[Rfam]
RNA sequence: AGAUUCUUUAAAACAGUCCAGAGAGGCUGAGAAGGAUAACGGAUCAAUUUGUGCAGGCGUAUGCACAAAUGAACGCCCCUCUCUGCCCUUUGCAGAAGGGGCUUUUUAUU
Numbered sequence: 001a002g003a004u005u006c007u008u009u010a011a012a013a014c015a016g017u018c019c020a021g022a023g024a025g026g027c028u029g030a031g032a033a034g035g036a037u038a039a040c041g042g043a044u045c046a047a048u049u050u051g052u053g054c055a056g057g058c059g060u061a062u063g064c065a066c067a068a069a070u071g072a073a074c075g076c077c078c079c080u081c082u083c084u085g086c087c088c089u090u091u092g093c094a095g096a097a098g099g100g101g102c103u104u105u106u107u108a109u110u
Stems, first nucleotide, its partner, number of pairs: 003037007014029005048069008072105002075102006083095004